[Rfam]
Nucleotides: 048
Stems, first nucleotide, its partner, number of pairs: 004025008029042004
Number, partner (000 for none) and nucleotide at each position: 001000g002000a003000c004025g005024a006023u007022a008021a009020g010019u011018a012000a013000a014000a015000u016000g017000g018011u019010a020009c021008u022007u023006a024005u025004u026000a027000a028000g029042g030041g031040c032039u033000g034000a035000g036000u037000g038000g039032a040031g041030c042029c043000g044000u045000u046000a047000g048000c